[Rfam]
Description: Small nucleolar RNA SNORD58: a 67-nucleotide sequence from Betta splendens. snoRNA U58 is found in introns 1, 3 and 6 of the ribosomal protein RPL17 gene in humans. Clan: SNORD58 clan. A search with the family's covariance model found it, with a score of 54 bits. Pairs were carried over by alignment from the consensus structure, which was predicted with PFOLD. NCBI's taxonomy places the organism under Eukaryota, Teleostei, Euacanthomorphacea, Macropodinae, Betta.
RNA sequence: CUGCACUGAUGACGUCUUAGGACACCUUUUAGAUGAAUGAUGAAAGUAACCCUUCAAUCUGAGCAGC
Numbered sequence: 001c002u003g004c005a006c007u008g009a010u011g012a013c014g015u016c017u018u019a020g021g022a023c024a025c026c027u028u029u030u031a032g033a034u035g036a037a038u039g040a041u042g043a044a045a046g047u048a049a050c051c052c053u054u055c056a057a058u059c060u061g062a063g064c065a066g067c
Base pairs, nucleotide, nucleotide: 001066002065003064004063

About this RNA:
A reference for the family is Galardi et al. (2002), "Purified box C/D snoRNPs are able to reproduce site-specific 2'-O-methylation of target RNA in vitro", Mol Cell Biol. Rfam classes the family as a C/D-box small nucleolar RNA.